The record is a 178-nucleotide RNA from Anaerosolibacter carboniphilus, which matches "Lysine riboswitch aptamer" in Rfam. Rfam's curators write: Riboswitches are metabolite binding domains within certain messenger RNAs that serve as precision sensors for their corresponding targets. The match comes from Rfam's covariance-model search (106 bits). NCBI's taxonomy places the organism under Bacteria, Bacillati, Bacillota, Peptostreptococcales, Anaerosolibacter.
[Rfam]
RNA sequence: AUGCAUGAUAGAGGUGUGCCUGACAAGAGUAGUCUAGGGAAGACGGUAGAGCAGUCGAAGAUCCUAGAGGAAAGGGGAUGGCACCGAAGGAUAAAUUCGCUCUAGAGUUUAUUCCUGGUUUCAGGGUUAAGAGUCCUGCGACUGUCACCAGUGACGCUGGUGGAGCGCUAUCUUGUUU
Numbered sequence: 001a002u003g004c005a006u007g008a009u010a011g012a013g014g015u016g017u018g019c020c021u022g023a024c025a026a027g028a029g030u031a032g033u034c035u036a037g038g039g040a041a042g043a044c045g046g047u048a049g050a051g052c053a054g055u056c057g058a059a060g061a062u063c064c065u066a067g068a069g070g071a072a073a074g075g076g077g078a079u080g081g082c083a084c085c086g087a088a089g090g091a092u093a094a095a096u097u098c099g100c101u102c103u104a105g106a107g108u109u110u111a112u113u114c115c116u117g118g119u120u121u122c123a124g125g126g127u128u129a130a131g132a133g134u135c136c137u138g139c140g141a142c143u144g145u146c147a148c149c150a151g152u153g154a155c156g157c158u159g160g161u162g163g164a165g166c167g168c169u170a171u172c173u174u175g176u177u178u
Stems, first nucleotide, its partner, number of pairs: 007172005016084005024076001033068007088116003091112008117143004122138006145163007